This 149-nucleotide sequence from Malonomonas rubra belongs to the Rfam family "FMN riboswitch aptamer (RFN element)". It scores 112 bits against the family's covariance model. Lineage of the source: Bacteria > Pseudomonadati > Desulfuromonadales > Malonomonas > Malonomonas rubra. Pairs were carried over by alignment from the consensus structure, which is taken from published work.
RNA sequence: UGCUGUUCUCAGGGCGGGGUGAAAGUCCCCACCGGCGGUAUCCCGACUUUGUGCGGGGAGCCCGCGAGCGCUUUUCCAUGGGGAAAAGGUCAGCAGAUCCGGUGAGAUGCCGGAGCCGACGGUUAUAGUCCGGAUGAAAGAGGAUCAUG
Numbered sequence: 001u002g003c004u005g006u007u008c009u010c011a012g013g014g015c016g017g018g019g020u021g022a023a024a025g026u027c028c029c030c031a032c033c034g035g036c037g038g039u040a041u042c043c044c045g046a047c048u049u050u051g052u053g054c055g056g057g058g059a060g061c062c063c064g065c066g067a068g069c070g071c072u073u074u075u076c077c078a079u080g081g082g083g084a085a086a087a088g089g090u091c092a093g094c095a096g097a098u099c100c101g102g103u104g105a106g107a108u109g110c111c112g113g114a115g116c117c118g119a120c121g122g123u124u125a126u127a128g129u130c131c132g133g134a135u136g137a138a139a140g141a142g143g144a145u146c147a148u149g
Base pairs, nucleotide, nucleotide: 005145006144007143008142009141010140017029018028019027031129032128033118034117035065036064037063038062060116061115068094069093098114099113100112101111102110120132121131122130